[Rfam]
RNA sequence: UCCAUCGUGAGGUGGAAUCUGAAGGAAGCUGUAGGCAAAUCCUUGGUCCGACGGACAGAAAUCGCAUAUGAGGCUAGGCUUCGAGAGAUAAGCUGGCGAAAGACAGCAAAGUCUAAUAACUACCACAUUUGUAGAAGUAGAGUAAUCAGCUGCGAGUACAUUAUACGGAGUAAUGAUUAUCAA
Numbered sequence: 001u002c003c004a005u006c007g008u009g010a011g012g013u014g015g016a017a018u019c020u021g022a023a024g025g026a027a028g029c030u031g032u033a034g035g036c037a038a039a040u041c042c043u044u045g046g047u048c049c050g051a052c053g054g055a056c057a058g059a060a061a062u063c064g065c066a067u068a069u070g071a072g073g074c075u076a077g078g079c080u081u082c083g084a085g086a087g088a089u090a091a092g093c094u095g096g097c098g099a100a101a102g103a104c105a106g107c108a109a110a111g112u113c114u115a116a117u118a119a120c121u122a123c124c125a126c127a128u129u130u131g132u133a134g135a136a137g138u139a140g141a142g143u144a145a146u147c148a149g150c151u152g153c154g155a156g157u158a159c160a161u162u163a164u165a166c167g168g169a170g171u172a173a174u175g176a177u178u179a180u181c182a183a
Stems, first nucleotide, its partner, number of pairs: 001016006030182002036175001040169003044165002046157002049154002062152001064150002073143003078138005086114004092107004

Group II catalytic intron D1-D4-3: a 183-nucleotide RNA sequence from Lachnospiraceae bacterium AM48-27BH.
The pairing is the family consensus, mapped onto this sequence.
NCBI's taxonomy places the organism under Bacteria, Bacillota, Clostridia, Lachnospirales, Lachnospiraceae.